[Rfam]
RNA sequence: UUGCGGCCCUAGCUCAACGGUUAGAGCAGGGGACUCAUCAACGAAAUGGUGGCGCCGGGGGGCGACCCCCGGACGCGAACCGGGUGAAUUGCGGGAACCCUAACCCGGGCGAGGGCAUCCGUCCUCGACCGGCACGGCGAUCCGCAGCCAAGCCUGGUCGGGCUCAGGUGGCCAGGACGGUUCAGAGACUAGCGGGGUGAGUCCCAACAAUAACCCCCGCCUCGAGCGCCCGGCCUCCAAGGCGACCGUCCCCGGUCGUCGGGGAGGAUGAGAUAGUCCGAGCCCCGCGGAAACGCGGGG
Numbered sequence: 001u002u003g004c005g006g007c008c009c010u011a012g013c014u015c016a017a018c019g020g021u022u023a024g025a026g027c028a029g030g031g032g033a034c035u036c037a038u039c040a041a042c043g044a045a046a047u048g049g050u051g052g053c054g055c056c057g058g059g060g061g062g063c064g065a066c067c068c069c070c071g072g073a074c075g076c077g078a079a080c081c082g083g084g085u086g087a088a089u090u091g092c093g094g095g096a097a098c099c100c101u102a103a104c105c106c107g108g109g110c111g112a113g114g115g116c117a118u119c120c121g122u123c124c125u126c127g128a129c130c131g132g133c134a135c136g137g138c139g140a141u142c143c144g145c146a147g148c149c150a151a152g153c154c155u156g157g158u159c160g161g162g163c164u165c166a167g168g169u170g171g172c173c174a175g176g177a178c179g180g181u182u183c184a185g186a187g188a189c190u191a192g193c194g195g196g197g198u199g200a201g202u203c204c205c206a207a208c209a210a211u212a213a214c215c216c217c218c219g220c221c222u223c224g225a226g227c228g229c230c231c232g233g234c235c236u237c238c239a240a241g242g243c244g245a246c247c248g249u250c251c252c253c254g255g256u257c258g259u260c261g262g263g264g265a266g267g268a269u270g271a272g273a274u275a276g277u278c279c280g281a282g283c284c285c286c287g288c289g290g291a292a293a294c295g296c297g298g299g300g
Base pairs, nucleotide, nucleotide: 005056006055007054009052010051011050060069061068080233081232082231083230085228086227090146091145092144093143094142095141099137100136147181148180153175185279187278188277189276190275191274236265237264238263241260242259243258244257245256246255247254248253285298286297287296288295289294
Source information
The family of this 300-nucleotide RNA from Tautonia plasticadhaerens is "Group I catalytic intron". Lineage of the source: Bacteria > Planctomycetia > Isosphaerales > Isosphaeraceae > Tautonia. About the family: Group I catalytic introns are large self-splicing ribozymes. They catalyse their own excision from mRNA, tRNA and rRNA precursors in a wide range of organisms. The core secondary structure consists of 9 paired regions (P1-P9). These fold to essentially two domains - the P4-P6 domain (formed from the stacking of P5, P4, P6 and P6a helices) and the P3-P9 domain (formed from the P8, P3, P7 and P9 helices). The secondary structure mark-up for this family represents only this conserved core. Group I catalytic introns often have long ORFs inserted in loop regions. The window size for this search is chosen to minimise search time and catch the small examples. A larger window size will find more matches.